This 97-nucleotide sequence from Amycolatopsis xylanica belongs to the Rfam family "Bacterial small signal recognition particle RNA". The family is grouped with related families in Rfam's "SRP clan". The literature on the family includes a 2003 paper in Nucleic Acids Res by Rosenblad et al., "SRPDB: Signal Recognition Particle Database".
RNA sequence: CCACGGACCCCGCGCGGCGUCCACCCUGUGAACCUCCCCAGGGCCGGAAGGCAGCAAGGAUAAGCAGGCUCUGGCGGGUGCGCGGGGUCCGCUUUCA
Numbered sequence: 001c002c003a004c005g006g007a008c009c010c011c012g013c014g015c016g017g018c019g020u021c022c023a024c025c026c027u028g029u030g031a032a033c034c035u036c037c038c039c040a041g042g043g044c045c046g047g048a049a050g051g052c053a054g055c056a057a058g059g060a061u062a063a064g065c066a067g068g069c070u071c072u073g074g075c076g077g078g079u080g081c082g083c084g085g086g087g088u089c090c091g092c093u094u095u096c097a
Stems, first nucleotide, its partner, number of pairs: 004091011015078001018076004025068005035060003043052003